[Rfam]
RNA: Small nucleolar RNA snoR53Y
Organism: Musa acuminata
RNA sequence: CUUCCCAAUGAUGCCUCUGUUAACCAUGCUAAUGCUGAAAUGCUCUGAAGGAAUUUUGUUUCUUAUUCUGAGGGGGUA
Numbered sequence: 001c002u003u004c005c006c007a008a009u010g011a012u013g014c015c016u017c018u019g020u021u022a023a024c025c026a027u028g029c030u031a032a033u034g035c036u037g038a039a040a041u042g043c044u045c046u047g048a049a050g051g052a053a054u055u056u057u058g059u060u061u062c063u064u065a066u067u068c069u070g071a072g073g074g075g076g077u078a
Stems, first nucleotide, its partner, number of pairs: 002076004